[Rfam]
RNA: Small nucleolar RNA SNORA72
RNA sequence: CUGCAAAUAUUCUUGCUGUUCUGAUUUUGUAAUAAUCCGGGUGGGCUAAAUAUUCACUGUAUUAAGACUAUGCAUAUGUCUCCAGAAAUAAUGCUUUCCCUAGGUCUGGUUUUGUUAAUGCUUGUGAUAAAU
Numbered sequence: 001c002u003g004c005a006a007a008u009a010u011u012c013u014u015g016c017u018g019u020u021c022u023g024a025u026u027u028u029g030u031a032a033u034a035a036u037c038c039g040g041g042u043g044g045g046c047u048a049a050a051u052a053u054u055c056a057c058u059g060u061a062u063u064a065a066g067a068c069u070a071u072g073c074a075u076a077u078g079u080c081u082c083c084a085g086a087a088a089u090a091a092u093g094c095u096u097u098c099c100c101u102a103g104g105u106c107u108g109g110u111u112u113u114g115u116u117a118a119u120g121c122u123u124g125u126g127a128u129a130a131a132u
Base pairs, nucleotide, nucleotide: 003057016044017043018042019041020040021039023037024036025035026034067125068124070122072121073120082109083108084107085106086105089102090101